RNA sequence: UUGCACGGUGAACACCCAAGUGUGCUUUAUAGUUCCCUUGGCUUCGACUCUGUGCUAGAGCAAUGUCUGUCCUCCUCUGCAUUGAAAGGCCUAUUUAUCCUUUCAAAUGUAUUCAGAAAGUCAGCACAUUU
Numbered sequence: 001u002u003g004c005a006c007g008g009u010g011a012a013c014a015c016c017c018a019a020g021u022g023u024g025c026u027u028u029a030u031a032g033u034u035c036c037c038u039u040g041g042c043u044u045c046g047a048c049u050c051u052g053u054g055c056u057a058g059a060g061c062a063a064u065g066u067c068u069g070u071c072c073u074c075c076u077c078u079g080c081a082u083u084g085a086a087a088g089g090c091c092u093a094u095u096u097a098u099c100c101u102u103u104c105a106a107a108u109g110u111a112u113u114c115a116g117a118a119a120g121u122c123a124g125c126a127c128a129u130u131u
Base pairs, nucleotide, nucleotide: 003055004054005053006052007051008050010049013046016041017040018039019038020037022035024033025032026031057073058072060070061069062068076117077116078115079114080109081108082107083106084104085103086102087101088100089099
A member of the RNA family "Small nucleolar RNA SNORA22" from Pteropus alecto, 131 nucleotides long. The match comes from Rfam's covariance-model search (139 bits). The family's consensus secondary structure was predicted with RNAfold.